About this RNA
The record is an 81-nucleotide RNA sequence from Amnibacterium setariae, which matches "ZMP/ZTP riboswitch aptamer (pfl RNA motif)" in Rfam. Gene Ontology terms of the family: one-carbon metabolic process and regulation of purine nucleotide biosynthetic process. A search with the family's covariance model found it, with a score of 57 bits.
RNA sequence: UGAUCCCGCCGCGACUGGCGUUCAGGUGGUCACCACCGGGGAGCGGCUGAUGGAGAGGCGCCGCUCGCCUGGGCGCUGAUC
Numbered sequence: 001u002g003a004u005c006c007c008g009c010c011g012c013g014a015c016u017g018g019c020g021u022u023c024a025g026g027u028g029g030u031c032a033c034c035a036c037c038g039g040g041g042a043g044c045g046g047c048u049g050a051u052g053g054a055g056a057g058g059c060g061c062c063g064c065u066c067g068c069c070u071g072g073g074c075g076c077u078g079a080u081c
Stems, first nucleotide, its partner, number of pairs: 006049001008047005015040002017069004026036004058076005
Dot-bracket structure: .....(.(((((..(([[[[.....((((...))))..))..))))).)........(((((...]]]]..))))).....